[Rfam]
RNA sequence: GCCGGGCGUUGUGGCGAGCGCCUGUAAACCAGCUACUUGGUGGCUUCGCUCAGAGGACGGGCUGAGUCGUAGAGCCCUGCUGUCGGCAGGCUGCGCUGACUGGCCGUCCAGGUCAAGAACUGCGUGCACCAAAGGACCGGGGUGGGAGCAUCCUGAUUCUUGAGUGGUCAAACAGAACCGUACUGCCACAGGGGCGAAAGCCAGCAUGGAAAAGGUUCGGCGCGGUUACAGUGAUCGGAUAGCGGACACGAGUGGAUCUCCGGUAGUAGCUACGGCAACACGUUCGGACCUGAGCGUUA
Numbered sequence: 001g002c003c004g005g006g007c008g009u010u011g012u013g014g015c016g017a018g019c020g021c022c023u024g025u026a027a028a029c030c031a032g033c034u035a036c037u038u039g040g041u042g043g044c045u046u047c048g049c050u051c052a053g054a055g056g057a058c059g060g061g062c063u064g065a066g067u068c069g070u071a072g073a074g075c076c077c078u079g080c081u082g083u084c085g086g087c088a089g090g091c092u093g094c095g096c097u098g099a100c101u102g103g104c105c106g107u108c109c110a111g112g113u114c115a116a117g118a119a120c121u122g123c124g125u126g127c128a129c130c131a132a133a134g135g136a137c138c139g140g141g142g143u144g145g146g147a148g149c150a151u152c153c154u155g156a157u158u159c160u161u162g163a164g165u166g167g168u169c170a171a172a173c174a175g176a177a178c179c180g181u182a183c184u185g186c187c188a189c190a191g192g193g194g195c196g197a198a199a200g201c202c203a204g205c206a207u208g209g210a211a212a213a214g215g216u217u218c219g220g221c222g223c224g225g226u227u228a229c230a231g232u233g234a235u236c237g238g239a240u241a242g243c244g245g246a247c248a249c250g251a252g253u254g255g256a257u258c259u260c261c262g263g264u265a266g267u268a269g270c271u272a273c274g275g276c277a278a279c280a281c282g283u284u285c286g287g288a289c290c291u292g293a294g295c296g297u298u299a
Stems, first nucleotide, its partner, number of pairs: 001044003004023007028041003047296007058286005066276007077269008086261001088259003091255004096250001101248002104245004108238002111236005117229001119226007127166003132161005138155007167173002175218005184211001186209003193202003